[Rfam]
The record is an 83-nucleotide RNA from Dipodomys ordii, which matches "mir-149 microRNA precursor family" in Rfam. Gene Ontology terms of the family: miRNA-mediated post-transcriptional gene silencing and RISC complex. The match comes from Rfam's covariance-model search (88 bits).

RNA sequence: GCCGGCGCCCGGGCUCUGGCUCCGUGUCUUCACUCCCGUGUCUAGAGGAGGGAGGGAGGGCCGGGGGCUGUGCUGGGGCGGCU
Numbered sequence: 001g002c003c004g005g006c007g008c009c010c011g012g013g014c015u016c017u018g019g020c021u022c023c024g025u026g027u028c029u030u031c032a033c034u035c036c037c038g039u040g041u042c043u044a045g046a047g048g049a050g051g052g053a054g055g056g057a058g059g060g061c062c063g064g065g066g067g068c069u070g071u072g073c074u075g076g077g078g079c080g081g082c083u
Stems, first nucleotide, its partner, number of pairs: 007079004012074003016070001018068001020066005027059005033054005